[Rfam]
RNA sequence: AAAUAAAAAACCCUGCAUUUUACGAUGCAGGGCCCUUCUAUUUCUGUAUUCAUACAGAUAGAAGGCAAAGGGAGAGGAGAAACCGGAUGAAGAACUUAUGGGGAAACGUAAGUCUUCUCCACGG
Numbered sequence: 001a002a003a004u005a006a007a008a009a010a011c012c013c014u015g016c017a018u019u020u021u022a023c024g025a026u027g028c029a030g031g032g033c034c035c036u037u038c039u040a041u042u043u044c045u046g047u048a049u050u051c052a053u054a055c056a057g058a059u060a061g062a063a064g065g066c067a068a069a070g071g072g073a074g075a076g077g078a079g080a081a082a083c084c085g086g087a088u089g090a091a092g093a094a095c096u097u098a099u100g101g102g103g104a105a106a107c108g109u110a111a112g113u114c115u116u117c118u119c120c121a122c123g124g
Base pairs, nucleotide, nucleotide: 011032012031013030014029015028016027017026018025019024033072034071035070036069037068043058044057045056046055047054085120086119087118089117090116091115092114094113095112096111097110098109
Source information: A member of the RNA family "ylbH leader" from Bacillus sp. FJAT-50079, 124 nucleotides long. The family's RNA type in Rfam is cis-regulatory leader. A search with the family's covariance model found it, with a score of 111 bits. Pairs were carried over by alignment from the consensus structure. For this family Rfam cites "New RNA motifs suggest an expanded scope for riboswitches in bacterial genetic control" (Barrick et al., Proc Natl Acad Sci U S A, 2004). Rfam describes the family as follows. This family is a putative regulatory RNA structure that is found upstream of the ylbH gene in B. subtilis and related low GC Gram-positive bacteria.